[Rfam]
RNA sequence: AGGUUUGGAGAGAGAGGCAUGGUCUGAUCCGCAGCCUCCAUGGCAGCUGUUGGUCAGCCGUUGCCUCUCUCUUUCUCUCCA
Numbered sequence: 001a002g003g004u005u006u007g008g009a010g011a012g013a014g015a016g017g018c019a020u021g022g023u024c025u026g027a028u029c030c031g032c033a034g035c036c037u038c039c040a041u042g043g044c045a046g047c048u049g050u051u052g053g054u055c056a057g058c059c060g061u062u063g064c065c066u067c068u069c070u071c072u073u074u075c076u077c078u079c080c081a
Base pairs, nucleotide, nucleotide: 008073009072010071011070012069013068014067015066016065017064018063019062022059024057025056026055027054028053029052032049033048034047035046

A member of the RNA family "mir-574 microRNA precursor family" from Myotis myotis, 81 nucleotides long. It scores 99 bits against the family's covariance model. Lineage of the source: Eukaryota > Opisthokonta > Euteleostomi > Dipnotetrapodomorpha > Myotis. The family is grouped with related families in Rfam's "mir-574 microRNA precursor clan".